[Rfam]
RNA sequence: CUUCGCUGGUGGCGCACUUCCGUUUAGCGGGUGGUGUUAUCAUGCGUUGCUGUCAUCAGACACGGCAAGAUCCCAGAAGCCCGCUUAAUCAGCGGGCUUUUUUAA
Dot-bracket structure: ........((((.(((((.((........)).)))))..))))..................................(((((((.......))))))).......

Tryptophan operon leader: a 105-nucleotide RNA from Biostraticola tofi.
NCBI's taxonomy places the organism under Bacteria, Pseudomonadati, Gammaproteobacteria, Bruguierivoracaceae, Biostraticola.
On this family, see Kolter and Yanofsky, Annu Rev Genet 1982: "Attenuation in amino acid biosynthetic operons".
It scores 65 bits against the family's covariance model.
From the family's description: At least 6 amino acid operons are known to be regulated by attenuation. In each a leader sequence of 150-200 bp is found upstream of the first gene in the operon.